[Rfam]
Rfam assigns this 43-nucleotide RNA sequence from Shigella flexneri to the family "ES036 (CssrF) sRNA". The base pairs follow the family's consensus structure, which was predicted with RNAfold. The match comes from Rfam's covariance-model search (41 bits). It is annotated as a small RNA. For this family Rfam cites "Differential expression of small RNAs under chemical stress and fed-batch fermentation in E. coli" (Rau et al., BMC Genomics, 2015). Differentially expressed under several chemical stress conditions. Also identified in Shigella as CssrF.
RNA sequence: AAACCCUUGCUAAUUCAAUCUAUUGCAGGGACUAUGUAGGCCU
Numbered sequence: 001a002a003a004c005c006c007u008u009g010c011u012a013a014u015u016c017a018a019u020c021u022a023u024u025g026c027a028g029g030g031a032c033u034a035u036g037u038a039g040g041c042c043u
Base pairs, nucleotide, nucleotide: 005030006029008027009026010025012023